Record summary
This 101-nucleotide RNA sequence from Burkholderiales bacterium PBB6 belongs to the Rfam family "SAH (S-adenosyl-L-homocysteine) riboswitch aptamer".
RNA sequence: UGAUCCGAGGAGCGUUGCAAGGACUGGCGCCGACACCGUUUUGUGUCGAGUUGCGCAGGCCCCAGGCUCGGACCAUUCAAUUGCAACCGCGCUCACCCGCA
Number, nucleotide and partner (000 for none) at each position: 001u000002g074003a000004u072005c071006c070007g069008a068009g000010g000011a000012g000013c000014g000015u000016u000017g000018c000019a000020a000021g061022g060023a000024c058025u057026g056027g000028c000029g000030c000031c000032g000033a000034c000035a000036c000037c000038g000039u000040u000041u000042u000043g000044u000045g000046u000047c000048g000049a000050g000051u000052u000053g000054c000055g000056c026057a025058g024059g000060c022061c021062c000063c000064a000065g000066g000067c000068u008069c007070g006071g005072a004073c000074c002075a000076u000077u000078c000079a000080a000081u000082u000083g000084c000085a000086a000087c000088c000089g000090c000091g000092c000093u000094c000095a000096c000097c000098c000099g000100c000101a000